[Rfam]
RNA: U2 spliceosomal RNA
Organism: Podilymbus podiceps
RNA sequence: AGAGCUUUUCAGCCUUUGGGUGAAGCUCAAGUGUAGUGUGUAUUCUUACCAGCUGCUUACCUGAUAGGUGGCUGCAAGGAUUCACCAUUAAAUAGCAUUGUGGAGACAGGAGAUGCUUUGGGAGCUUGCUGCAGCUGCUUCACACGAGGCCCUGGUAUCGCAAUACCUUCUGGUCCACUGUUAGCUCU
Numbered sequence: 001a002g003a004g005c006u007u008u009u010c011a012g013c014c015u016u017u018g019g020g021u022g023a024a025g026c027u028c029a030a031g032u033g034u035a036g037u038g039u040g041u042a043u044u045c046u047u048a049c050c051a052g053c054u055g056c057u058u059a060c061c062u063g064a065u066a067g068g069u070g071g072c073u074g075c076a077a078g079g080a081u082u083c084a085c086c087a088u089u090a091a092a093u094a095g096c097a098u099u100g101u102g103g104a105g106a107c108a109g110g111a112g113a114u115g116c117u118u119u120g121g122g123a124g125c126u127u128g129c130u131g132c133a134g135c136u137g138c139u140u141c142a143c144a145c146g147a148g149g150c151c152c153u154g155g156u157a158u159c160g161c162a163a164u165a166c167c168u169u170c171u172g173g174u175c176c177a178c179u180g181u182u183a184g185c186u187c188u
Stems, first nucleotide, its partner, number of pairs: 008025002012021003047066002050063003068085004073080001075079001109141004115135002121132001123130002144181003149176001151173002154170002